[Rfam]
RNA sequence: GAAGAGAAGGCUUUGGACAAAACAGAACGAUGAAACGUUGUGCAAAGC
Numbered sequence: 001g002a003a004g005a006g007a008a009g010g011c012u013u014u015g016g017a018c019a020a021a022a023c024a025g026a027a028c029g030a031u032g033a034a035a036c037g038u039u040g041u042g043c044a045a046a047g048c
Stems, first nucleotide, its partner, number of pairs: 011047005017041003
RNA: uup RNA
Organism: Robinsoniella sp. RHS